bantam microRNA precursor family: an 82-nucleotide RNA from Soboliphyme baturini. The base pairs follow the family's consensus structure, which was predicted with RNAalifold.
[Rfam]
RNA sequence: AAUGAAGCGUUAAACUGGUUUUCGCUUUGAUCUUUCAGACAGAAACUAAUUCUGAGAUCAUUGUGAAAGCCAAUUUGUAGCU
Numbered sequence: 001a002a003u004g005a006a007g008c009g010u011u012a013a014a015c016u017g018g019u020u021u022u023c024g025c026u027u028u029g030a031u032c033u034u035u036c037a038g039a040c041a042g043a044a045a046c047u048a049a050u051u052c053u054g055a056g057a058u059c060a061u062u063g064u065g066a067a068a069g070c071c072a073a074u075u076u077g078u079a080g081c082u
Base pairs, nucleotide, nucleotide: 011077012076013075014074016072017071018070019069020068021067022066023065024064025063028060029059030058031057032056033055
Dot-bracket structure: ..........((((.((((((((((..((((((.....................))))))..)))))))))).)))).....